[Rfam]
RNA: Bacterial RNase P class A
Organism: Pseudorhodobacter antarcticus
RNA sequence: GCGGAUGGCCGGAUGACCGCGUGUGUGACGUAGUCCCGUAAGGGAAACCGGCGCGCGCGAGGAAAGUCCGGACUCCAUGAGGCAAGGGUGCCGGGUAACGCCCGGCUGGGGUAACCCAAGGGAAAGCGCCACAGAGAAGAGACUGCUUUGCAUGCAAAGUGAUGGUGAAACGGCGGGGUAAGAGCCCACCGCGGACGUGGCAACACGGACGGCAUGGCAAGCCCCACCCGGAGCAAUGCCGAAUAGGGACCUUGCGCCUGCGCCCUUCGGGGCACAGGCAGGGAUGCAACAGCCCAGAGGUCCGGGUUGGCAGCUAGACCCCGUUGGUAACAGCGGGGGCAGAGGAAUGGUCAUCGAAGGGAAAGCGGUCGCAAGAUCGCGGCCCCGGAACAAAAUCCGGCUUAUAGGCCAUCCGCACAU
Dot-bracket structure: ((((((((((((((((((.((((((((........................))))))))....[[[.[[[[[((((....[....((((((((((.....)))))(((((....)))).)((...(((((............(.((((((....))))))...).......((.(((.......))).))(((..((((....))))..)).)..)))..)))))))))))))...((((......((((((............................(((.(....]).)))..)))))).....))))......((((((((....))))))))..........)))))))........................................]]]]]]]].).))))))))))....
Numbered sequence: 001g002c003g004g005a006u007g008g009c010c011g012g013a014u015g016a017c018c019g020c021g022u023g024u025g026u027g028a029c030g031u032a033g034u035c036c037c038g039u040a041a042g043g044g045a046a047a048c049c050g051g052c053g054c055g056c057g058c059g060a061g062g063a064a065a066g067u068c069c070g071g072a073c074u075c076c077a078u079g080a081g082g083c084a085a086g087g088g089u090g091c092c093g094g095g096u097a098a099c100g101c102c103c104g105g106c107u108g109g110g111g112u113a114a115c116c117c118a119a120g121g122g123a124a125a126g127c128g129c130c131a132c133a134g135a136g137a138a139g140a141g142a143c144u145g146c147u148u149u150g151c152a153u154g155c156a157a158a159g160u161g162a163u164g165g166u167g168a169a170a171c172g173g174c175g176g177g178g179u180a181a182g183a184g185c186c187c188a189c190c191g192c193g194g195a196c197g198u199g200g201c202a203a204c205a206c207g208g209a210c211g212g213c214a215u216g217g218c219a220a221g222c223c224c225c226a227c228c229c230g231g232a233g234c235a236a237u238g239c240c241g242a243a244u245a246g247g248g249a250c251c252u253u254g255c256g257c258c259u260g261c262g263c264c265c266u267u268c269g270g271g272g273c274a275c276a277g278g279c280a281g282g283g284a285u286g287c288a289a290c291a292g293c294c295c296a297g298a299g300g301u302c303c304g305g306g307u308u309g310g311c312a313g314c315u316a317g318a319c320c321c322c323g324u325u326g327g328u329a330a331c332a333g334c335g336g337g338g339g340c341a342g343a344g345g346a347a348u349g350g351u352c353a354u355c356g357a358a359g360g361g362a363a364a365g366c367g368g369u370c371g372c373a374a375g376a377u378c379g380c381g382g383c384c385c386c387g388g389a390a391c392a393a394a395a396u397c398c399g400g401c402u403u404a405u406a407g408g409c410c411a412u413c414c415g416c417a418c419a420u
Stems, first nucleotide, its partner, number of pairs: 001416010011405001012355007020059008064403003068400005073233004081290001086229005091105005106120001107118004121224002126222002128218003143164001145160006172190002175187003191213001192211002196207004237312004247303006281295003285291001319338008